The family of this 113-nucleotide RNA from Crystallibacter crystallopoietes is "SAM (S-adenosyl methionine) riboswitch aptamer".
A search with the family's covariance model found it, with a score of 110 bits.
[Rfam]
RNA sequence: GGUCACGAGUGCCAGCGCUAAACCCCGGUUAGCUGGCCGGCAACCCUCCUCACGCGGCGGGGUGCCCCGGGUGACGACCUGGCCGUUCCUGACUGGUUCGGCAAGCGCGGAUC
Numbered sequence: 001g002g003u004c005a006c007g008a009g010u011g012c013c014a015g016c017g018c019u020a021a022a023c024c025c026c027g028g029u030u031a032g033c034u035g036g037c038c039g040g041c042a043a044c045c046c047u048c049c050u051c052a053c054g055c056g057g058c059g060g061g062g063u064g065c066c067c068c069g070g071g072u073g074a075c076g077a078c079c080u081g082g083c084c085g086u087u088c089c090u091g092a093c094u095g096g097u098u099c100g101g102c103a104a105g106c107g108c109g110g111a112u113c
Stems, first nucleotide, its partner, number of pairs: 001079004009038001011037006021030002039066003044062003048057002082102004088096002